[Rfam]
RNA sequence: UACACCACUGACCCUUGAGACAGGGCUUACUCGCCAUGAUUGGAAAGAUGAGUGGAAAUUAAUCCGAUACAGGGCGCACGGUAAAGCGGUUGCACCUGCCGUGCGUAGGAGAUAGAA
Numbered sequence: 001u002a003c004a005c006c007a008c009u010g011a012c013c014c015u016u017g018a019g020a021c022a023g024g025g026c027u028u029a030c031u032c033g034c035c036a037u038g039a040u041u042g043g044a045a046a047g048a049u050g051a052g053u054g055g056a057a058a059u060u061a062a063u064c065c066g067a068u069a070c071a072g073g074g075c076g077c078a079c080g081g082u083a084a085a086g087c088g089g090u091u092g093c094a095c096c097u098g099c100c101g102u103g104c105g106u107a108g109g110a111g112a113u114a115g116a117a
Stems, first nucleotide, its partner, number of pairs: 003054003010027001012025004031048002034043003063110003074106010086093002
Shown here is a 117-nucleotide sequence, a member of the family "RT-4 RNA".
Rfam's curators put it in the seed alignment.
It is annotated as a small RNA.
The family's consensus secondary structure is taken from published work.